RNA sequence: UAAAUUCUAUAGCAUUUCUUUGACAGCCUGUGACGCAAGCCCUCCAGCAAGGUGCAGACCGGAGUCUGUGCCUCGUUCCCUGGGGCGAUAGCUACUGCUGGAGGGUUUUGCAUUAUCCGUAUCUGGAUAACACGUCCCCCAGCUAUACC
Number, nucleotide and partner (000 for none) at each position: 001u000002a000003a000004a000005u000006u000007c000008u000009a000010u000011a000012g000013c000014a000015u000016u000017u000018c000019u000020u000021u000022g000023a000024c000025a144026g143027c142028c000029u000030g000031u000032g136033a135034c134035g111036c110037a109038a108039g107040c000041c105042c104043u103044c101045c100046a099047g098048c097049a096050a000051g072052g071053u070054g069055c068056a067057g066058a065059c064060c000061g000062g000063a000064g059065u058066c057067u056068g055069u054070g053071c052072c051073u088074c087075g086076u085077u084078c083079c000080c000081u000082g000083g078084g077085g076086c075087g074088a073089u000090a000091g000092c000093u000094a000095c000096u049097g048098c047099u046100g045101g044102a000103g043104g042105g041106u000107u039108u038109u037110g036111c035112a000113u000114u129115a128116u127117c126118c125119g000120u000121a000122u000123c000124u000125g118126g117127a116128u115129a114130a000131c000132a000133c000134g034135u033136c032137c000138c000139c000140c000141a000142g027143c026144u025145a000146u000147a000148c000149c000

The family of this 149-nucleotide sequence from Giardia duodenalis is "Small nucleolar RNA GlsR22". Lineage of the source: Eukaryota > Fornicata > Hexamitidae > Giardiinae > Giardia duodenalis. The family's RNA type in Rfam is H/ACA-box small nucleolar RNA. For this family Rfam cites "Evolutionarily divergent spliceosomal snRNAs and a conserved non-coding RNA processing motif in Giardia lamblia" (Hudson et al., Nucleic Acids Res, 2012).